[Rfam]
RNA sequence: UGCAGAUGAUGCAAAAGAAUAUUUGCUAUCUGAGUGAUAGUGCUGACAUAUAUAUCCACCAAGAUCGCUGAUGCA
Numbered sequence: 001u002g003c004a005g006a007u008g009a010u011g012c013a014a015a016a017g018a019a020u021a022u023u024u025g026c027u028a029u030c031u032g033a034g035u036g037a038u039a040g041u042g043c044u045g046a047c048a049u050a051u052a053u054a055u056c057c058a059c060c061a062a063g064a065u066c067g068c069u070g071a072u073g074c075a
Stems, first nucleotide, its partner, number of pairs: 001075004
Description:
A member of the RNA family "Small nucleolar RNA SNORD24" from Gopherus evgoodei, 75 nucleotides long. Rfam classes the family as a C/D-box small nucleolar RNA. Rfam links the family to the GO terms nucleolus and RNA processing. The source organism's lineage runs through Eukaryota, Amniota, Sauria, Cryptodira and Gopherus. The match comes from Rfam's covariance-model search (83 bits). The family's consensus secondary structure was predicted with PFOLD. Rfam 15.1 lists 2,843 matches to the family in 1,188 species.